RNA: Small nucleolar RNA SNORD58
Organism: Labrus bergylta
RNA sequence: UCGCAGUGAUGACAAUUUAGGACACCUUUGUAUUUACCAUGAAAAGAAAUGAGAAUAUCUGAGCGAU
Numbered sequence: 001u002c003g004c005a006g007u008g009a010u011g012a013c014a015a016u017u018u019a020g021g022a023c024a025c026c027u028u029u030g031u032a033u034u035u036a037c038c039a040u041g042a043a044a045a046g047a048a049a050u051g052a053g054a055a056u057a058u059c060u061g062a063g064c065g066a067u
Base pairs, nucleotide, nucleotide: 001066002065003064004063
Dot-bracket structure: ((((..........................................................)))).